Record summary
A member of the RNA family "Early nodulin 40" from Prunus armeniaca, 203 nucleotides long. Its family is annotated with nodulation in the Gene Ontology. It scores 112 bits against the family's covariance model. It is annotated as a non-coding RNA gene. The base pairs follow the family's consensus structure, which is taken from published work. The source organism's lineage runs through Eukaryota, Streptophytina, Tracheophyta, Rosales and Prunus.
RNA sequence: AUGAAGAGCCAAUCCAUGGGACUUAACAGCAUGGACAUGGAGUGAGGUUUGUCUCAAACCUCCUCCAAAACUCAACAGUUCGUCUGAGCUCAGUCAAUGGCUGCUAACUACAGCAAGGCAAUGAUCUAGAGGUAGCAGAGGUUUGGCUAGUGCUUGGCGAACCGGCAAGUCACAAAUCGGCAACCGGCUCAGUCACGAGUCUU
Number, nucleotide and partner (000 for none) at each position: 001a000002u000003g000004a000005a000006g000007a000008g000009c000010c000011a000012a000013u000014c000015c000016a000017u000018g000019g000020g000021a000022c000023u000024u000025a000026a000027c000028a000029g000030c000031a000032u000033g000034g000035a000036c000037a000038u000039g066040g065041a064042g000043u000044g000045a000046g000047g000048u000049u000050u000051g000052u000053c000054u000055c000056a000057a000058a000059c000060c000061u000062c000063c000064u041065c040066c039067a000068a000069a000070a000071c000072u000073c000074a000075a000076c000077a000078g162079u161080u160081c159082g158083u157084c000085u000086g000087a000088g000089c000090u000091c000092a000093g000094u000095c152096a151097a000098u000099g000100g000101c000102u000103g000104c000105u000106a000107a000108c000109u000110a000111c000112a000113g000114c000115a000116a000117g000118g000119c000120a000121a000122u000123g000124a000125u000126c000127u000128a000129g000130a000131g000132g000133u000134a000135g000136c000137a000138g000139a000140g000141g000142u000143u000144u000145g000146g000147c000148u000149a000150g000151u096152g095153c000154u000155u000156g000157g083158c082159g081160a080161a079162c078163c000164g000165g000166c000167a000168a000169g000170u000171c000172a000173c000174a000175a000176a000177u000178c000179g000180g000181c000182a000183a000184c000185c000186g201187g200188c199189u198190c197191a000192g000193u000194c000195a000196c000197g190198a189199g188200u187201c186202u000203u000